[Rfam]
RNA sequence: CAACCAUCCGGAGCGGCCGAGUGACGUGGCACGUCGACGCCGCAGCAACCCCCCGGUCCGUCGCGAGACGGCCGGGCGCAGGGUGCUACUGCCACGAUCGAUGGAGG
Dot-bracket structure: (..(((((....(((((...(((..[[[[)))......)))))((((.((.(.........................)...))))))...(]]]]...))))))..)

Overview
The family of this 107-nucleotide RNA sequence from Cellulosimicrobium funkei is "SAM riboswitch aptamer (S box leader)". The match comes from Rfam's covariance-model search (44 bits). The base pairs follow the family's consensus structure, which is taken from published work.